RNA sequence: UUUGCGGCCGCCUCUUAUUCGCUUGGUGCAGGUCGGGACCUCAUUCGCCGGCGCCGGGAAUAAUGCCGGACGAACGACGGCGGUGUUAAUUCUACUAAAGCUGUCACCGACGGAUAGAUGUUUGAUUAGCGGCGAAAUUUGGGUCCUGCCUUGCAUCAACUGAAUUGGAGACCGCUGUGAAA
Numbered sequence: 001u002u003u004g005c006g007g008c009c010g011c012c013u014c015u016u017a018u019u020c021g022c023u024u025g026g027u028g029c030a031g032g033u034c035g036g037g038a039c040c041u042c043a044u045u046c047g048c049c050g051g052c053g054c055c056g057g058g059a060a061u062a063a064u065g066c067c068g069g070a071c072g073a074a075c076g077a078c079g080g081c082g083g084u085g086u087u088a089a090u091u092c093u094a095c096u097a098a099a100g101c102u103g104u105c106a107c108c109g110a111c112g113g114a115u116a117g118a119u120g121u122u123u124g125a126u127u128a129g130c131g132g133c134g135a136a137a138u139u140u141g142g143g144u145c146c147u148g149c150c151u152u153g154c155a156u157c158a159a160c161u162g163a164a165u166u167g168g169a170g171a172c173c174g175c176u177g178u179g180a181a182a
Stems, first nucleotide, its partner, number of pairs: 013169002017165004023159010034148005040142002